[Rfam]
RNA sequence: UCGGACCACUGGGGGUGCACCAAAGGUGCUGAGAGGAACUUUGUUCCAACCCUUUGAACUUGAACUGGAUGAUACCAGCGGAAGGAAUGUGGGGAAUGGUUGAA
Numbered sequence: 001u002c003g004g005a006c007c008a009c010u011g012g013g014g015g016u017g018c019a020c021c022a023a024a025g026g027u028g029c030u031g032a033g034a035g036g037a038a039c040u041u042u043g044u045u046c047c048a049a050c051c052c053u054u055u056g057a058a059c060u061u062g063a064a065c066u067g068g069a070u071g072a073u074a075c076c077a078g079c080g081g082a083a084g085g086a087a088u089g090u091g092g093g094g095a096a097u098g099g100u101u102g103a104a
Stems, first nucleotide, its partner, number of pairs: 006092004011053004017029005036046004059084003065078004
RNA: TPP riboswitch aptamer (THI element)